[Rfam]
RNA sequence: AUAUACACUGAGUGGCCAGGUUAUUAUGAUAUCUGGAUGCAUAAUAAUCUGGCCACUCAUUGUAUGU
Numbered sequence: 001a002u003a004u005a006c007a008c009u010g011a012g013u014g015g016c017c018a019g020g021u022u023a024u025u026a027u028g029a030u031a032u033c034u035g036g037a038u039g040c041a042u043a044a045u046a047a048u049c050u051g052g053c054c055a056c057u058c059a060u061u062g063u064a065u066g067u
Stems, first nucleotide, its partner, number of pairs: 004064004009059009019049010
RNA: mir-9256 microRNA precursor family